The family of this 223-nucleotide RNA sequence from Ferrimicrobium acidiphilum is "Group II catalytic intron D1-D4-6".
Rfam 15.1 lists 1,617 matches to the family in 661 species.
Rfam links the family to the GO term Group II intron splicing.
NCBI's taxonomy places the organism under Bacteria, Acidimicrobiia, Acidimicrobiales, Ferrimicrobium, Ferrimicrobium acidiphilum.
From the family's description: Group II introns are found in rRNA, tRNA and mRNA of organelles in fungi, plants and protists, and also in mRNA in bacteria.
For this family Rfam cites "The ins and outs of group II introns" (Bonen and Vogel, Trends Genet, 2001).
[Rfam]
RNA sequence: GAAGAGCCUUACACCGAAGGAGUAGCGACCCACGAUGACCGUGAGCCGUGCGUCGACGACCCGCAAGGACGUGGCGAAGCGUCGGAUAGGGGUACGUGCAGGCCAGCCAUUGAGCCGCGAAAUCAAGUUCCUCGGGGUGCCGACGCUGUCGGAACAAGCGGAAGGCCACAUCUCUGAUGGUGCUAUCGUGAGCCGUCAGGGGACCCCGCGCGGUCAGAGACCC
Dot-bracket structure: ...........((.((..((..[.[[...)).)).)).((.(...((((((((((.((..((....)).)))))))...)).)))...).))..................((.((((((.............(((((((((..((((.........))))...)))....(((((((((((......]].])))))))))))))))))))))))).)......